[Rfam]
RNA sequence: GGAAAUUUGAGAGGAGCUGUCCUUAGUACGAGAGGACCGGGAUGGACGUUCCGCUGGUGUACCAGUUGUGCCGCCAGGCGCAUCGCUGGGUAGCUAUGAACGGCAGGGAUAAACGCUGAAAGCAUCUAAGUGUGAAGCCCCCCUCGAGAUGAGAUUUCCCAUUCCUUUAUGGAAGUAAGACCCCUGAAAGAUGAUCAGGUAGAUAGGCUGGAAGUGGAAGCGUAGCGAUAUGUGGAGCGGACCAGUACUAAUCGGUCGAGG
Numbered sequence: 001g002g003a004a005a006u007u008u009g010a011g012a013g014g015a016g017c018u019g020u021c022c023u024u025a026g027u028a029c030g031a032g033a034g035g036a037c038c039g040g041g042a043u044g045g046a047c048g049u050u051c052c053g054c055u056g057g058u059g060u061a062c063c064a065g066u067u068g069u070g071c072c073g074c075c076a077g078g079c080g081c082a083u084c085g086c087u088g089g090g091u092a093g094c095u096a097u098g099a100a101c102g103g104c105a106g107g108g109a110u111a112a113a114c115g116c117u118g119a120a121a122g123c124a125u126c127u128a129a130g131u132g133u134g135a136a137g138c139c140c141c142c143c144u145c146g147a148g149a150u151g152a153g154a155u156u157u158c159c160c161a162u163u164c165c166u167u168u169a170u171g172g173a174a175g176u177a178a179g180a181c182c183c184c185u186g187a188a189a190g191a192u193g194a195u196c197a198g199g200u201a202g203a204u205a206g207g208c209u210g211g212a213a214g215u216g217g218a219a220g221c222g223u224a225g226c227g228a229u230a231u232g233u234g235g236a237g238c239g240g241a242c243c244a245g246u247a248c249u250a251a252u253c254g255g256u257c258g259a260g261g
Stems, first nucleotide, its partner, number of pairs: 001159008011145004017045007047102005055096003062089005067082006106140003113133005162174003176259001179257004183199005204250003207246005214238001220233005
Rfam assigns this 261-nucleotide part of an RNA from Lacticaseibacillus brantae to the family "Bacterial large subunit ribosomal RNA". The base pairs follow the family's consensus structure, which is taken from published work.